Rfam assigns this 104-nucleotide RNA sequence from Pseudomonas sp. ABC1 to the family "Guanidine-I riboswitch aptamer". Its family is annotated with regulation of gene expression in the Gene Ontology. The match comes from Rfam's covariance-model search (80 bits).
[Rfam]
RNA sequence: ACCAAGGCGAGCUAGGGUUCCGGUCCACUGCGUGUGGAUGGCUGGUCCGAGAGUUUUCCGGCCUCAUGGAGGGGGUCACACGGCGGGAUAAAAGCCCGGGAGAC
Numbered sequence: 001a002c003c004a005a006g007g008c009g010a011g012c013u014a015g016g017g018u019u020c021c022g023g024u025c026c027a028c029u030g031c032g033u034g035u036g037g038a039u040g041g042c043u044g045g046u047c048c049g050a051g052a053g054u055u056u057u058c059c060g061g062c063c064u065c066a067u068g069g070a071g072g073g074g075g076u077c078a079c080a081c082g083g084c085g086g087g088a089u090a091a092a093a094g095c096c097c098g099g100g101a102g103a104c
Base pairs, nucleotide, nucleotide: 007058009056010055011054012053015048016047020045021044022042023039024038025037026036027035028034060077061076062075063074064073065072079099081102085097086096087095
About the family: This family represents a conserved RNA structure found upstream of the ykkC and yxkD genes in Bacillus subtilis and related genes in other bacteria. The function of this family is unclear although it has been suggested that it may function to switch on efflux pumps and detoxification systems in response to harmful environmental molecules.